[Rfam]
A member of the RNA family "Histone 3' UTR stem-loop" from Nematostella vectensis, 46 nucleotides long.
The mRNAs of metazoan histone genes lack a poly-A tail. 3' end processing occurs at a site between a highly conserved stem-loop (modelled by this family) and a purine rich region around 20 nts downstream (the histone downstream element, or HDE).
The match comes from Rfam's covariance-model search (37 bits).
The family's RNA type in Rfam is cis-regulatory element.
RNA sequence: ACAACGGCUCUUUUAGGAGCCACCCACUUAUUCAAAAGUCAUGCCU
Numbered sequence: 001a002c003a004a005c006g007g008c009u010c011u012u013u014u015a016g017g018a019g020c021c022a023c024c025c026a027c028u029u030a031u032u033c034a035a036a037a038g039u040c041a042u043g044c045c046u
Base pairs, nucleotide, nucleotide: 006021007020008019009018010017011016
NCBI's taxonomy places the organism under Eukaryota, Metazoa, Hexacorallia, Actiniaria, Nematostella. Pairs were carried over by alignment from the consensus structure, which is taken from published work.